The record is a 449-nucleotide part of an RNA from Nanoarchaeum equitans, which matches "Archaeal large subunit ribosomal RNA" in Rfam.
NCBI's taxonomy places the organism under Archaea, Nanobdellati, Nanobdellota, Nanoarchaeaceae, Nanoarchaeum equitans.

RNA sequence: CCCGCCGAAAUGGGCUGCAGUCCAGCCUCGGCGGAGGCACCCUCGGGUGUAGAGCGACGGAUUCCCGUGGCAAGGGGGUUAACCCCACCACGGGAGUCCAACUCCGAAGCCCGAGGGGCCGUAGAUGCCGGGAGACGGGGGCGGCGGAUAAGCCGCCGUUCCGAGACGGGAACAACCGAGACCGGGGUUAAGGCCCCUAAGUGCCGGCUAAGUGGCUGGAAGGGUGUCCGCUCCCUAAGACACCGGGGAUGUGGGACUAGUAGUGUCCAUCAUCUAAGGAGUGUGCAACAACUCACCCGGCGAGGGAGCGGGCCCCGCAGAUGGACGGGCCUAAGCCGGCCGCCGAGACCCCGGGCCGGGGAUCCGAUGGAUCCCCGUGCGGUAGGCGGGCGUCCCGGUGGCCUAGAAGGCGGGCCGUGAGGUCCGCUGGAGCCGCCGGGAAUGAGAAU
Numbered sequence: 001c002c003c004g005c006c007g008a009a010a011u012g013g014g015c016u017g018c019a020g021u022c023c024a025g026c027c028u029c030g031g032c033g034g035a036g037g038c039a040c041c042c043u044c045g046g047g048u049g050u051a052g053a054g055c056g057a058c059g060g061a062u063u064c065c066c067g068u069g070g071c072a073a074g075g076g077g078g079u080u081a082a083c084c085c086c087a088c089c090a091c092g093g094g095a096g097u098c099c100a101a102c103u104c105c106g107a108a109g110c111c112c113g114a115g116g117g118g119c120c121g122u123a124g125a126u127g128c129c130g131g132g133a134g135a136c137g138g139g140g141g142c143g144g145c146g147g148a149u150a151a152g153c154c155g156c157c158g159u160u161c162c163g164a165g166a167c168g169g170g171a172a173c174a175a176c177c178g179a180g181a182c183c184g185g186g187g188u189u190a191a192g193g194c195c196c197c198u199a200a201g202u203g204c205c206g207g208c209u210a211a212g213u214g215g216c217u218g219g220a221a222g223g224g225u226g227u228c229c230g231c232u233c234c235c236u237a238a239g240a241c242a243c244c245g246g247g248g249a250u251g252u253g254g255g256a257c258u259a260g261u262a263g264u265g266u267c268c269a270u271c272a273u274c275u276a277a278g279g280a281g282u283g284u285g286c287a288a289c290a291a292c293u294c295a296c297c298c299g300g301c302g303a304g305g306g307a308g309c310g311g312g313c314c315c316c317g318c319a320g321a322u323g324g325a326c327g328g329g330c331c332u333a334a335g336c337c338g339g340c341c342g343c344c345g346a347g348a349c350c351c352c353g354g355g356c357c358g359g360g361g362a363u364c365c366g367a368u369g370g371a372u373c374c375c376c377g378u379g380c381g382g383u384a385g386g387c388g389g390g391c392g393u394c395c396c397g398g399u400g401g402c403c404u405a406g407a408a409g410g411c412g413g414g415c416c417g418u419g420a421g422g423u424c425c426g427c428u429g430g431a432g433c434c435g436c437c438g439g440g441a442a443u444g445a446g447a448a449u
Base pairs, nucleotide, nucleotide: 001390002389003388004387005386006385011024012023013022014021015020026134027132028131029130030129031128032127036120037119038118040117041116042115043114044113045112046111047110052105053103054102060098061097062096063095064094065093066092067091068090069089074086075085076084077083138162139161140160141159142158143157144156145155146154167178168177169176182354183353184352185351186350187349188348192344193343194342201341203340204339205338206337207336208335222316223315224314226313227312228311229310230309231308232307233306234305235304243300244299245298246297247296249273250272251271254268255267256266274278279294283292284291355380356379357377358376359375360374361373362372363371391444393441394440395439396438397437398436399435400434401433402432409428410427411426412425413424414423415422416421